Rfam assigns this 141-nucleotide sequence from Arachis hypogaea to the family "Small nucleolar RNA snoR138".
The family's RNA type in Rfam is H/ACA-box small nucleolar RNA.
Rfam links the family to the GO terms RNA processing and nucleolus.
[Rfam]
RNA sequence: UAUGCCUCUGGAAUAACCGAAUGGUGAAAUAAAUAACCUUUUGGUUCAGAAGAAGGCAAAUAUCAAGUGCCAAACCUUGAAGAUGUUUGAGGGCACGGAAUGCUCUACUUUAGCUCCUUGCCUUGAUAUCUUCGGACAUCC
Numbered sequence: 001u002a003u004g005c006c007u008c009u010g011g012a013a014u015a016a017c018c019g020a021a022u023g024g025u026g027a028a029a030u031a032a033a034u035a036a037c038c039u040u041u042u043g044g045u046u047c048a049g050a051a052g053a054a055g056g057c058a059a060a061u062a063u064c065a066a067g068u069g070c071c072a073a074a075c076c077u078u079g080a081a082g083a084u085g086u087u088u089g090a091g092g093g094c095a096c097g098g099a100a101u102g103c104u105c106u107a108c109u110u111u112a113g114c115u116c117c118u119u120g121c122c123u124u125g126a127u128a129u130c131u132u133c134g135g136a137c138a139u140c141c
Stems, first nucleotide, its partner, number of pairs: 003058005009053001015046007024037002078134006087126001090123003094120001097117003102114003
Dot-bracket structure: ..(((((.(.....(((((((..((..........))..)))))))......))))))...................((((((...(..(((.(..(((..(((.......))))))..))))..)..)))))).......

The literature on the family includes a 2009 paper in Nucleic Acids Res by Chen and Wu, "Mining small RNA sequencing data: a new approach to identify small nucleolar RNAs in Arabidopsis".